[Rfam]
Overview
Rfam assigns this 181-nucleotide RNA sequence from Phaeobacter gallaeciensis to the family "Ruegeria cis52 sRNA". For this family Rfam cites "Experimental Identification of Small Non-Coding RNAs in the Model Marine Bacterium Ruegeria pomeroyi DSS-3" (Rivers et al., Front Microbiol, 2016). The source organism's lineage runs through Bacteria, Pseudomonadati, Alphaproteobacteria, Roseobacteraceae and Phaeobacter. The match comes from Rfam's covariance-model search (134 bits). Gene Ontology term of the family: regulation of gene expression. It is annotated as a small RNA.
RNA sequence: UGCGCAGGGCAUGUUUCAUGACGAUCUUGGGAAAGCUCACCCCUUUGAGCCGUGCGGUGCGGAUAUAUUGCGCCGUCAUCACCUCGGUCAUCGAGGCGCGGGUCAUGCGUGCGAUAUAGCCCAUGCCAUAAAGGGCGAUAGUCAGAACCGGCAGCAGGAAGUUUUCGAUGUUGGGGCUUUC
Numbered sequence: 001u002g003c004g005c006a007g008g009g010c011a012u013g014u015u016u017c018a019u020g021a022c023g024a025u026c027u028u029g030g031g032a033a034a035g036c037u038c039a040c041c042c043c044u045u046u047g048a049g050c051c052g053u054g055c056g057g058u059g060c061g062g063a064u065a066u067a068u069u070g071c072g073c074c075g076u077c078a079u080c081a082c083c084u085c086g087g088u089c090a091u092c093g094a095g096g097c098g099c100g101g102g103u104c105a106u107g108c109g110u111g112c113g114a115u116a117u118a119g120c121c122c123a124u125g126c127c128a129u130a131a132a133g134g135g136c137g138a139u140a141g142u143c144a145g146a147a148c149c150g151g152c153a154g155c156a157g158g159a160a161g162u163u164u165u166c167g168a169u170g171u172u173g174g175g176g177c178u179u180u181c
Base pairs, nucleotide, nucleotide: 006139009136010135012133014131015130016128021124028123029122030121031120038113040111042109046105047104048103050101051100052099053098054097055075056074057073058072059071060070061069062068082096083095084094085093086092145181146180147179148174149173150172151171152170153169154165156163157162